[Rfam]
RNA sequence: AAUGACCACUAGGGGAGCCUUUAUUAAGGGCUGAGAUUAAAGUUCAACUUUAAGACCCUUUGAACCUGAUCUAGUUGAUACUAGCGGAGGGAAGUGGAGCAGAAGGAUA
Numbered sequence: 001a002a003u004g005a006c007c008a009c010u011a012g013g014g015g016a017g018c019c020u021u022u023a024u025u026a027a028g029g030g031c032u033g034a035g036a037u038u039a040a041a042g043u044u045c046a047a048c049u050u051u052a053a054g055a056c057c058c059u060u061u062g063a064a065c066c067u068g069a070u071c072u073a074g075u076u077g078a079u080a081c082u083a084g085c086g087g088a089g090g091g092a093a094g095u096g097g098a099g100c101a102g103a104a105g106g107a108u109a
Stems, first nucleotide, its partner, number of pairs: 006097005011059004017031005038052005065090003071084004